[Rfam]
RNA sequence: GAGUUACGUUAACGAGCGAGGUUAAGGGGAAGACCCGGAGCCGUAGCGAAAGCGAGUCUGAAGAGGGCGAUAGUUCGUUGACGUAGACCCGAAACCGGGUGAUCUACCCAUGGGCAGGGUGAAGCGAGAUUAAACUCUCGUGGAGGCCCGAACCGACCGACGUUGAAAAGUCGGCGGAUGACCUGUGGGUAGGGGUGAAAUGCCAAUCGAACCCGGAGAUAGCUGGUU
Numbered sequence: 001g002a003g004u005u006a007c008g009u010u011a012a013c014g015a016g017c018g019a020g021g022u023u024a025a026g027g028g029g030a031a032g033a034c035c036c037g038g039a040g041c042c043g044u045a046g047c048g049a050a051a052g053c054g055a056g057u058c059u060g061a062a063g064a065g066g067g068c069g070a071u072a073g074u075u076c077g078u079u080g081a082c083g084u085a086g087a088c089c090c091g092a093a094a095c096c097g098g099g100u101g102a103u104c105u106a107c108c109c110a111u112g113g114g115c116a117g118g119g120u121g122a123a124g125c126g127a128g129a130u131u132a133a134a135c136u137c138u139c140g141u142g143g144a145g146g147c148c149c150g151a152a153c154c155g156a157c158c159g160a161c162g163u164u165g166a167a168a169a170g171u172c173g174g175c176g177g178a179u180g181a182c183c184u185g186u187g188g189g190u191a192g193g194g195g196u197g198a199a200a201u202g203c204c205a206a207u208c209g210a211a212c213c214c215g216g217a218g219a220u221a222g223c224u225g226g227u228u
Stems, first nucleotide, its partner, number of pairs: 005085013020042004026036003046053002056068004088226002091223001095216006104192011115180001117149004124141006153177003157174005194204003
Description
Shown here is a 228-nucleotide part of an RNA from Neomoorella thermoacetica, a member of the family "Bacterial large subunit ribosomal RNA". Lineage of the source: Bacteria > Bacillati > Neomoorellales > Neomoorellaceae > Neomoorella. The family's consensus secondary structure is taken from published work. The match comes from Rfam's covariance-model search (2970 bits).